This 67-nucleotide sequence from Bacillus sp. FJAT-27916 belongs to the Rfam family "Streptococcus sRNA SpF59 (ldcC RNA)". Rfam classes the family as a small RNA. A reference for the family is Mann et al. (2012), "Control of virulence by small RNAs in Streptococcus pneumoniae", PLoS Pathog.
RNA sequence: UGACCACAUUUCAUGGUUUCUAACCAUGGAACGUUAAGGCCAUACGGACAGCCGGGUCAAAUGCCGA
Numbered sequence: 001u002g003a004c005c006a007c008a009u010u011u012c013a014u015g016g017u018u019u020c021u022a023a024c025c026a027u028g029g030a031a032c033g034u035u036a037a038g039g040c041c042a043u044a045c046g047g048a049c050a051g052c053c054g055g056g057u058c059a060a061a062u063g064c065c066g067a
Stems, first nucleotide, its partner, number of pairs: 001059005006034002009031010